RNA sequence: CAAGCCGUCUUUGGGGAGUAGCCUUCCUUCCGCCUUGGAAGGAGAACGCGUCAACAUCCUCGGCUUUUCUGCCGUGGCGCGUUCGACCGCGAGUUCAUUCGCUCGGUUUGGCGAGACCAUUGAUGCAUCGUGUCGUUCCUGGUCGGACGGCGUGCGAUGCAUCAUGGUUCGCUGACGUCC
Numbered sequence: 001c002a003a004g005c006c007g008u009c010u011u012u013g014g015g016g017a018g019u020a021g022c023c024u025u026c027c028u029u030c031c032g033c034c035u036u037g038g039a040a041g042g043a044g045a046a047c048g049c050g051u052c053a054a055c056a057u058c059c060u061c062g063g064c065u066u067u068u069c070u071g072c073c074g075u076g077g078c079g080c081g082u083u084c085g086a087c088c089g090c091g092a093g094u095u096c097a098u099u100c101g102c103u104c105g106g107u108u109u110g111g112c113g114a115g116a117c118c119a120u121u122g123a124u125g126c127a128u129c130g131u132g133u134c135g136u137u138c139c140u141g142g143u144c145g146g147a148c149g150g151c152g153u154g155c156g157a158u159g160c161a162u163c164a165u166g167g168u169u170c171g172c173u174g175a176c177g178u179c180c
Base pairs, nucleotide, nucleotide: 026042027041028040044084045083046082047081048080049079050078051077052076053075061074062073063072064071091180